Shown here is a 181-nucleotide RNA sequence from Peptoniphilus sp. oral taxon 386, a member of the family "6S / SsrS RNA". From the family's description: E. coli 6S RNA was the first non coding RNA to be sequenced, but its function was unknown until recently. It consists of 184 nucleotides that fold into an extended hairpin structure with a large single-stranded internal bulge. The family's consensus secondary structure is taken from published work. It is annotated as a non-coding RNA gene.
[Rfam]
RNA sequence: UAUACUCUACGAUGUACGACAGAUUUUCAUUUAAUUCAACCGACAAAAAAGAUCCGGGAAACUUUCUAUUACAGAAUAUAACAAGCCAUCUUGGUGUGGAAGUUAGAAAAUGGGAUGAGGUUACCCACCUACUUAUGGGGGCGGGUCUGAAUUAAUGGAACAACGGCAUUGUGGAGUUUUU
Numbered sequence: 001u002a003u004a005c006u007c008u009a010c011g012a013u014g015u016a017c018g019a020c021a022g023a024u025u026u027u028c029a030u031u032u033a034a035u036u037c038a039a040c041c042g043a044c045a046a047a048a049a050a051g052a053u054c055c056g057g058g059a060a061a062c063u064u065u066c067u068a069u070u071a072c073a074g075a076a077u078a079u080a081a082c083a084a085g086c087c088a089u090c091u092u093g094g095u096g097u098g099g100a101a102g103u104u105a106g107a108a109a110a111u112g113g114g115a116u117g118a119g120g121u122u123a124c125c126c127a128c129c130u131a132c133u134u135a136u137g138g139g140g141g142c143g144g145g146u147c148u149g150a151a152u153u154a155a156u157g158g159a160a161c162a163a164c165g166g167c168a169u170u171g172u173g174g175a176g177u178u179u180u181u
Stems, first nucleotide, its partner, number of pairs: 002179001004177012017165002031155004036150003039146003056126003060122006069115002072112002081103002086099004